[Rfam]
RNA: Guanidine-I riboswitch aptamer
RNA sequence: AUGCAGGGUGUCUAGGGUUCCGCCUCCUCCUCCUCCCGAGGGUCUGGUCCGAGAGACGCCACCUGCCCGGCAAAUUCCGGACAGGUACACGGCGGGGCAAAAACCCGGGAGAG
Numbered sequence: 001a002u003g004c005a006g007g008g009u010g011u012c013u014a015g016g017g018u019u020c021c022g023c024c025u026c027c028u029c030c031u032c033c034u035c036c037c038g039a040g041g042g043u044c045u046g047g048u049c050c051g052a053g054a055g056a057c058g059c060c061a062c063c064u065g066c067c068c069g070g071c072a073a074a075u076u077c078c079g080g081a082c083a084g085g086u087a088c089a090c091g092g093c094g095g096g097g098c099a100a101a102a103a104c105c106c107g108g109g110a111g112a113g
Stems, first nucleotide, its partner, number of pairs: 007060006015050002020047002022044001023041004061086005067080004088108001090111001094106003